Shown here is a 266-nucleotide RNA sequence from Dictyoglomus turgidum, a member of the family "Bacterial large signal recognition particle RNA". It scores 170 bits against the family's covariance model.
RNA sequence: CUAUGCUUAGGUGGGGAGCUAGCGGUGCCCUGUACCUGCAAUCCGCUAUAGCAGGACCGAAAGGCCACCCGAGGUAUGGUCUUGUGGGAAUAGGAGGAGAAAAGGAAGCUAUGAAGGUUAGGAACUGUGCACUAAGGGUGCCUCGAACCCCGCCAGGUCCGAAAGGAAGCAACGGUAAGAGGUGGCUCUUAGGUGCCGCAGUGUACCUGACUGGAGCUUACCUAUCUCUUUCUACCCGUAGGGCCAUAUCGACGGUGGAGGCAUAG
Numbered sequence: 001c002u003a004u005g006c007u008u009a010g011g012u013g014g015g016g017a018g019c020u021a022g023c024g025g026u027g028c029c030c031u032g033u034a035c036c037u038g039c040a041a042u043c044c045g046c047u048a049u050a051g052c053a054g055g056a057c058c059g060a061a062a063g064g065c066c067a068c069c070c071g072a073g074g075u076a077u078g079g080u081c082u083u084g085u086g087g088g089a090a091u092a093g094g095a096g097g098a099g100a101a102a103a104g105g106a107a108g109c110u111a112u113g114a115a116g117g118u119u120a121g122g123a124a125c126u127g128u129g130c131a132c133u134a135a136g137g138g139u140g141c142c143u144c145g146a147a148c149c150c151c152g153c154c155a156g157g158u159c160c161g162a163a164a165g166g167a168a169g170c171a172a173c174g175g176u177a178a179g180a181g182g183u184g185g186c187u188c189u190u191a192g193g194u195g196c197c198g199c200a201g202u203g204u205a206c207c208u209g210a211c212u213g214g215a216g217c218u219u220a221c222c223u224a225u226c227u228c229u230u231u232c233u234a235c236c237c238g239u240a241g242g243g244c245c246a247u248a249u250c251g252a253c254g255g256u257g258g259a260g261g262c263a264u265a266g
Stems, first nucleotide, its partner, number of pairs: 001266007010058003013031004018026003035055005065258005073250005079244010092233002095230006104222002107218003116212007124202006130193001133191005139184006150175003158167003